Annotation:
Shown here is a 53-nucleotide RNA, a member of the family "Mu-gpT-DE RNA". The family's consensus secondary structure is taken from published work. The sequence is in the family's curated seed alignment.

RNA sequence: UCCUGACAGUCGCAUCCCGCGAUUGACACUAGCCACGACAGGAGACACAUAUG
Numbered sequence: 001u002c003c004u005g006a007c008a009g010u011c012g013c014a015u016c017c018c019g020c021g022a023u024u025g026a027c028a029c030u031a032g033c034c035a036c037g038a039c040a041g042g043a044g045a046c047a048c049a050u051a052u053g
Base pairs, nucleotide, nucleotide: 002042003041004040005039007025008024009023010022011021
Dot-bracket structure: .((((.(((((.........))))).............))))...........